[Rfam]
A member of the RNA family "c-di-GMP-I riboswitch aptamer" from Selenihalanaerobacter shriftii, 94 nucleotides long.
RNA sequence: CCGUGAGAAAGGCAUACCUUUUGUAAAGAAAGGGACGCAAAGCUAUGAGUCUAAGGUAUAGUUGAUUUUAUACUAAGACUGUCUGGCUUCCAUG
Dot-bracket structure: ...........((...((((((.....))))))...))..((((..(((((....((((((......))))))...)))..)).))))......
Numbered sequence: 001c002c003g004u005g006a007g008a009a010a011g012g013c014a015u016a017c018c019u020u021u022u023g024u025a026a027a028g029a030a031a032g033g034g035a036c037g038c039a040a041a042g043c044u045a046u047g048a049g050u051c052u053a054a055g056g057u058a059u060a061g062u063u064g065a066u067u068u069u070a071u072a073c074u075a076a077g078a079c080u081g082u083c084u085g086g087c088u089u090c091c092a093u094g
Stems, first nucleotide, its partner, number of pairs: 012038002017033006041088004047083002049079003056073006

A search with the family's covariance model found it, with a score of 64 bits.